The record is a 149-nucleotide sequence from Lonepinella koalarum, which matches "Molybdenum/Tungsten riboswitch aptamer (Moco RNA motif)" in Rfam. It scores 64 bits against the family's covariance model. Taxonomically the source falls in Lonepinella (Bacteria, Pseudomonadati, Pseudomonadota, Gammaproteobacteria).
RNA sequence: AAUUUCAUAUACCGAGCUUGUGUACCUAAGUCUCUCAAUGAGUUGAUAGGGUAGCAAUGCCAGUGAUGGUUAGUUUUAUCAUCACUCGGGGAUACGCUGGAAACGGUUUGUCCUAUUCUUUUUUAUAAAGGUAUCUUAUGCAAUCUAUU
Numbered sequence: 001a002a003u004u005u006c007a008u009a010u011a012c013c014g015a016g017c018u019u020g021u022g023u024a025c026c027u028a029a030g031u032c033u034c035u036c037a038a039u040g041a042g043u044u045g046a047u048a049g050g051g052u053a054g055c056a057a058u059g060c061c062a063g064u065g066a067u068g069g070u071u072a073g074u075u076u077u078a079u080c081a082u083c084a085c086u087c088g089g090g091g092a093u094a095c096g097c098u099g100g101a102a103a104c105g106g107u108u109u110g111u112c113c114u115a116u117u118c119u120u121u122u123u124u125a126u127a128a129a130g131g132u133a134u135c136u137u138a139u140g141c142a143a144u145c146u147a148u149u
Stems, first nucleotide, its partner, number of pairs: 003140001009134005016060002019057001023053004030047003062086009089114006096107004115126002